Small nucleolar RNA snoR104: a 118-nucleotide sequence from Triticum urartu.
It scores 65 bits against the family's covariance model.
Lineage of the source: Eukaryota > Embryophyta > Triticeae > Triticinae > Triticum.
It is annotated as an H/ACA-box small nucleolar RNA.
RNA sequence: UGGUGACAUUCAAAGGACGACAUGCCUACCUGAUACAAUCUUCCUAAAGUGAAAUUAUCAUUUCCUGCUUGUGGUUUCGUUAGGAAGUUCUGCAAGUCUCAAAUGAGAAAAUGUACAU
Numbered sequence: 001u002g003g004u005g006a007c008a009u010u011c012a013a014a015g016g017a018c019g020a021c022a023u024g025c026c027u028a029c030c031u032g033a034u035a036c037a038a039u040c041u042u043c044c045u046a047a048a049g050u051g052a053a054a055u056u057a058u059c060a061u062u063u064c065c066u067g068c069u070u071g072u073g074g075u076u077u078c079g080u081u082a083g084g085a086a087g088u089u090c091u092g093c094a095a096g097u098c099u100c101a102a103a104u105g106a107g108a109a110a111a112u113g114u115a116c117a118u
Base pairs, nucleotide, nucleotide: 002030003029005027007024008023009022056113057112058111067097068096069095070094071093072092073091074090077087